[Rfam]
RNA: c-di-GMP-I riboswitch aptamer
RNA sequence: UUAACUGAGUGCCAACCUUGGUGUGAGCCAAGAGACGGAAAGCCACGGGUCUUAAAAAAAGAUAGCCGGGUUGCUUUU
Dot-bracket structure: ...........((...((((((....))))))....))..((((.((((((.........)))..)))))))......